[Rfam]
RNA sequence: UGUCCAGGCCUCCUCAUUGUGCAUGCUGUGUGUGUGUCUGUCGUCCCUCACAGCGCCUGCAAUGUGGAGGCUGAGGCA
Number, nucleotide and partner (000 for none) at each position: 001u000002g000003u000004c000005c000006a000007g000008g000009c000010c000011u000012c067013c066014u000015c064016a063017u062018u061019g060020u059021g058022c000023a000024u055025g000026c053027u052028g051029u050030g049031u000032g000033u000034g000035u000036g000037u000038c000039u000040g000041u000042c000043g000044u000045c000046c000047c000048u000049c030050a029051c028052a027053g026054c000055g024056c000057c000058u021059g020060c019061a018062a017063u016064g015065u000066g013067g012068a000069g000070g000071c000072u000073g000074a000075g000076g000077c000078a000
The family of this 78-nucleotide RNA sequence from Gouania willdenowi is "mir-460 microRNA precursor family". Its family is annotated with miRNA-mediated post-transcriptional gene silencing and RISC complex in the Gene Ontology. It scores 59 bits against the family's covariance model. Rfam 15.1 lists 1,029 matches to the family in 498 species. The organism belongs to Gouania, within Eukaryota.